Nucleotides: 358
Base pairs, nucleotide, nucleotide: 001354002353003352004351005350006349007348008347009346010345011343012305013304014303015302016301017300018299020048021047022046023045024044025043026042028040053341055339057338058337059336060335061334062208063207064206065205069239070238074204075203076202077201078200079093080092081091082090083089094108095106096105097104098103109199110198114197115196116193117192130182131181132180133179134178135177136176137175138174140172212260213259214258215257222251223250224249225248226247227246233244234243235242236241268288269287270286271285272284274283275282276281
Number, partner (000 for none) and nucleotide at each position: 001354g002353a003352a004351g005350u006349c007348g008347g009346c010345u011343g012305g013304a014303c015302c016301g017300c018299c019000g020048c021047u022046g023045g024044c025043a026042c027000g028040a029000u030000c031000a032000g033000g034000g035000a036000a037000a038000c039000c040028u041000g042026g043025u044024g045023c046022u047021g048020g049000a050000g051000g052000a053341a054000c055339g056000u057338c058337c059336g060335g061334a062208c063207u064206g065205c066000g067000c068000a069239g070238g071000g072000c073000a074204g075203c076202g077201u078200a079093g080092g081091a082090g083089g084000u085000a086000a087000c088000a089083c090082c091081u092080c093079u094108c095106c096105a097104c098103c099000g100000c101000g102000a103098g104097g105096u106095g107000a108094g109199g110198a111000u112000c113000a114197g115196a116193g117192c118000a119000a120000c121000a122000g123000a124000g125000a126000c127000g128000a129000g130182u131181c132180a133179c134178c135177u136176u137175g138174g139000g140172g141000c142000c143000g144000c145000g146000c147000c148000g149000a150000g151000g152000g153000c154000g155000c156000a157000a158000g159000c160000c161000c162000g163000a164000g165000a166000c167000a168000c169000a170000a171000g172140c173000a174138c175137c176136a177135a178134g179133g180132u181131g182130g183000g184000u185000g186000a187000a188000a189000c190000g191000g192117g193116c194000a195000a196115u197114c198110u199109c200078u201077a202076c203075g204074c205065g206064c207063a208062g209000c210000a211000a212260c213259a214258c215257c216000a217000a218000a219000u220000a221000g222251g223250c224249a225248c226247a227246c228000g229000a230000u231000g232000a233244c234243g235242g236241g237000g238070c239069c240000c241236c242235c243234c244233g245000a246227g247226u248225g249224u250223g251222c252000g253000g254000g255000u256000a257215g258214g259213u260212g261000g262000c263000a264000c265000c266000g267000a268288g269287c270286c271285g272284c273000a274283u275282g276281g277000g278000u279000g280000a281276c282275c283274g284272g285271c286270g287269g288268c289000c290000c291000a292000g293000a294000u295000g296000a297000a298000u299018g300017g301016c302015g303014g304013u305012c306000a307000c308000g309000u310000c311000a312000c313000g314000g315000g316000c317000g318000a319000c320000c321000g322000u323000g324000a325000u326000g327000c328000a329000c330000a331000g332000a333000a334061u335060c336059c337058g338057g339055c340000u341053u342000a343011c344000a345010g346009g347008c348007c349006g350005a351004c352003u353002u354001c355000a356000c357000a358000c